The family of this 87-nucleotide RNA from Bacillus mesophilus is "c-di-GMP-I riboswitch aptamer". The base pairs follow the family's consensus structure, which is taken from published work.

RNA sequence: CGUACGAAACGGCAAAACCUUUGAAAAAUGGUGACGCAAAGCUAUAGGGACUAAUGUCUUUCAUGACUAAGUCAGCCAGCUACCGAA
Numbered sequence: 001c002g003u004a005c006g007a008a009a010c011g012g013c014a015a016a017a018c019c020u021u022u023g024a025a026a027a028a029u030g031g032u033g034a035c036g037c038a039a040a041g042c043u044a045u046a047g048g049g050a051c052u053a054a055u056g057u058c059u060u061u062c063a064u065g066a067c068u069a070a071g072u073c074a075g076c077c078a079g080c081u082a083c084c085g086a087a
Base pairs, nucleotide, nucleotide: 012037013036017032018031019030021028022027040081041080042079043078047077048076049073050072051071056067057066058065